[Rfam]
RNA sequence: ACUAUGGAGUGUUAUAUCAAAUGAAAGUAGUUCUAUAGAACAAAAUCAGACACGUUGAAGUAGUAA
Number, nucleotide and partner (000 for none) at each position: 001a064002c063003u062004a061005u060006g000007g000008a000009g053010u052011g051012u050013u049014a000015u000016a000017u000018c000019a000020a000021a000022u048023g047024a046025a000026a000027g000028u000029a000030g041031u040032u039033c038034u000035a000036u000037a000038g033039a032040a031041c030042a000043a000044a000045a000046u024047c023048a022049g013050a012051c011052a010053c009054g000055u000056u000057g000058a000059a000060g005061u004062a003063g002064u001065a000066a000
The record is a 66-nucleotide RNA from Clostridium argentinense, which matches "RAGATH-18 RNA" in Rfam. Rfam classes the family as a small RNA. The family's consensus secondary structure is taken from published work. Rfam describes the family as follows. Actinobacteria, Firmicutes, Fusobacteria, Thermotogae (1 example).